[Rfam]
RNA sequence: GUGGCUUUGCUUGGUUUUUAUUGGUUUACACAGUCUCAUACCAUGUGUUGAACUAUUUAAAGUGAAGCCAGAAAAUUGUUUCUCUCGCUAUCCAGUGCUUCAAUUGUGGAGCAUUUGGACGUUGGGAAACUACAUCU
Dot-bracket structure: .((((..(((((...(.......(((((((((...........))))).)))).)....)))))..))).)......(((((((.((...(((((....(((....))).....)))))))..))))))).......
This 137-nucleotide sequence from Coffea canephora belongs to the Rfam family "Small nucleolar RNA snoR136". For this family Rfam cites "Mining small RNA sequencing data: a new approach to identify small nucleolar RNAs in Arabidopsis" (Chen and Wu, Nucleic Acids Res, 2009). Pairs were carried over by alignment from the consensus structure, which was predicted with mfold. The family has 8 seed sequences and 452 matches in Rfam 15.1. It scores 70 bits against the family's covariance model. The organism belongs to Coffea, within Eukaryota. Rfam links the family to the GO terms nucleolus and RNA processing.